[Rfam]
A member of the RNA family "glmS glucosamine-6-phosphate activated ribozyme aptamer" from Peptacetobacter hominis, 177 nucleotides long. The family's RNA type in Rfam is riboswitch.

RNA sequence: ACUCUCGAAUUAGCGCCAGGACUUGAUAUGACAUAUAAAAUAUCAUUUAUAGUAUCAAGUUGACGAGGUCAGAGUUAAUCGAAUUUUCGGCGGGUGCUCUGCGGUGAAUUUACCAUCGUAAAAUUUCUUCAAAACAUAGGAGUGAUCCUGUGAACAAAGGGAAAUUUGAGUAAAUAA
Numbered sequence: 001a002c003u004c005u006c007g008a009a010u011u012a013g014c015g016c017c018a019g020g021a022c023u024u025g026a027u028a029u030g031a032c033a034u035a036u037a038a039a040a041u042a043u044c045a046u047u048u049a050u051a052g053u054a055u056c057a058a059g060u061u062g063a064c065g066a067g068g069u070c071a072g073a074g075u076u077a078a079u080c081g082a083a084u085u086u087u088c089g090g091c092g093g094g095u096g097c098u099c100u101g102c103g104g105u106g107a108a109u110u111u112a113c114c115a116u117c118g119u120a121a122a123a124u125u126u127c128u129u130c131a132a133a134a135c136a137u138a139g140g141a142g143u144g145a146u147c148c149u150g151u152g153a154a155c156a157a158a159g160g161g162a163a164a165u166u167u168g169a170g171u172a173a174a175u176a177a
Stems, first nucleotide, its partner, number of pairs: 020061008029052001070101005079090004102118005122166006135152007